[Rfam]
Annotation: The record is an 85-nucleotide RNA from Orycteropus afer, which matches "Small nucleolar RNA SNORD11B" in Rfam. It is annotated as a C/D-box small nucleolar RNA. The family has 37 seed sequences and 733 matches in Rfam 15.1. It scores 83 bits against the family's covariance model. Rfam links the family to the GO terms RNA processing and nucleolus.
RNA sequence: UGAUGGCAGUGAUGAUUUAUCUUAAUUGUUCACCUGAAAUGCAAAUAUGAGGGUGUACAGUCAACUACCUCAUCUGAUGCUAUCU
Numbered sequence: 001u002g003a004u005g006g007c008a009g010u011g012a013u014g015a016u017u018u019a020u021c022u023u024a025a026u027u028g029u030u031c032a033c034c035u036g037a038a039a040u041g042c043a044a045a046u047a048u049g050a051g052g053g054u055g056u057a058c059a060g061u062c063a064a065c066u067a068c069c070u071c072a073u074c075u076g077a078u079g080c081u082a083u084c085u
Stems, first nucleotide, its partner, number of pairs: 002084006
On this family, see Yang et al., Nucleic Acids Res 2006: "snoSeeker: an advanced computational package for screening of guide and orphan snoRNA genes in the human genome". The family's consensus secondary structure was predicted with WAR.